[Rfam]
RNA sequence: GUGUAUCCCCAGCUCUGAGAACUGAAUUCCAUGGGUUAUAUCAAUGUCAGACCUGUGAAAUUCAGUUCUUCAGCUGGGAUAGCUCUG
Numbered sequence: 001g002u003g004u005a006u007c008c009c010c011a012g013c014u015c016u017g018a019g020a021a022c023u024g025a026a027u028u029c030c031a032u033g034g035g036u037u038a039u040a041u042c043a044a045u046g047u048c049a050g051a052c053c054u055g056u057g058a059a060a061u062u063c064a065g066u067u068c069u070u071c072a073g074c075u076g077g078g079a080u081a082g083c084u085c086u087g
Stems, first nucleotide, its partner, number of pairs: 008078002011075003018069008033054004
Shown here is an 87-nucleotide RNA sequence from Mus musculus, a member of the family "mir-146 microRNA precursor family". Pairs were carried over by alignment from the consensus structure, which was predicted with WAR. For this family Rfam cites "Identification of tissue-specific microRNAs from mouse" (Lagos-Quintana et al., Curr Biol, 2002). Taxonomically the source falls in Mus (Eukaryota, Metazoa, Craniata, Muroidea).